[Rfam]
RNA sequence: CGACUCGCGGCGGGAGAGUCCCGGCACCACCGGGACGCCGAAGGAGCAACUCUCCCCGGAAUCUCUCAGGCCCAUGUACCGCCGCGGCUAG
Numbered sequence: 001c002g003a004c005u006c007g008c009g010g011c012g013g014g015a016g017a018g019u020c021c022c023g024g025c026a027c028c029a030c031c032g033g034g035a036c037g038c039c040g041a042a043g044g045a046g047c048a049a050c051u052c053u054c055c056c057c058g059g060a061a062u063c064u065c066u067c068a069g070g071c072c073c074a075u076g077u078a079c080c081g082c083c084g085c086g087g088c089u090a091g
Stems, first nucleotide, its partner, number of pairs: 006086008019035004037071003040067002044065003050058001

Glycine riboswitch aptamer: a 91-nucleotide sequence from Catellatospora sp. TT07R-123. A search with the family's covariance model found it, with a score of 68 bits. The pairing is the family consensus, mapped onto this sequence. The organism belongs to Catellatospora, within Bacteria.